RNA sequence: CGUGUCUUAUGAAAAUAGCCAAAUUUGAGCGUCAGAAGACCUUACAGUCUACCUAAUGCAUGAUCUCUGUAGUUCUGAGA
Dot-bracket structure: ............................((((....((((......)))).....)))).....................

Background: The record is an 80-nucleotide RNA sequence from Neogale vison, which matches "Small nucleolar RNA U2-19" in Rfam. The source organism's lineage runs through Eukaryota, Craniata, Teleostomi, Musteloidea and Neogale. A search with the family's covariance model found it, with a score of 78 bits. Pairs were carried over by alignment from the consensus structure, which is taken from published work. The family's RNA type in Rfam is C/D-box small nucleolar RNA.